Rfam assigns this 74-nucleotide RNA sequence from Tetrahymena pyriformis to the family "tRNA".
It is one of the family's seed sequences.
Taxonomically the source falls in Tetrahymena (Eukaryota, Sar, Intramacronucleata, Tetrahymenidae).
The family's RNA type in Rfam is transfer RNA.
[Rfam]
RNA sequence: GCUCGAUUAGCUCAGCUGGUUAGAGCAUGCGGCUGUUAACCGCAAGGUCGUAGGUUCGAUCCCUACAUCGAGCG
Numbered sequence: 001g002c003u004c005g006a007u008u009a010g011c012u013c014a015g016c017u018g019g020u021u022a023g024a025g026c027a028u029g030c031g032g033c034u035g036u037u038a039a040c041c042g043c044a045a046g047g048u049c050g051u052a053g054g055u056u057c058g059a060u061c062c063c064u065a066c067a068u069c070g071a072g073c074g
Stems, first nucleotide, its partner, number of pairs: 001073007010026004028044005050066005